A member of the RNA family "Small nucleolar RNA SNORA84" from Felis catus, 133 nucleotides long.
RNA sequence: GCCCUGUGGUUACUGGAUGCUGUUUGCAGGUACAGCUCUCCAGUGGAUGUGAGGGGGCCACAGCAAUCCUGUGAUUUAUGCAUGGGGGCUGUUUCUCCUCAGCAGCCACCAUAGCCCGGUCACUGAUACAUGG
Numbered sequence: 001g002c003c004c005u006g007u008g009g010u011u012a013c014u015g016g017a018u019g020c021u022g023u024u025u026g027c028a029g030g031u032a033c034a035g036c037u038c039u040c041c042a043g044u045g046g047a048u049g050u051g052a053g054g055g056g057g058c059c060a061c062a063g064c065a066a067u068c069c070u071g072u073g074a075u076u077u078a079u080g081c082a083u084g085g086g087g088g089c090u091g092u093u094u095c096u097c098c099u100c101a102g103c104a105g106c107c108a109c110c111a112u113a114g115c116c117c118g119g120u121c122a123c124u125g126a127u128a129c130a131u132g133g
Base pairs, nucleotide, nucleotide: 001058002057003056004055007049008048010046011045012044013043014042015041016040017039019036020035021034022033023032069125071123072122073121074120075119076118080115081114082112083111084110085109087107088106089105090104091103092102093101
The organism belongs to Felis, within Eukaryota. The family's RNA type in Rfam is H/ACA-box small nucleolar RNA.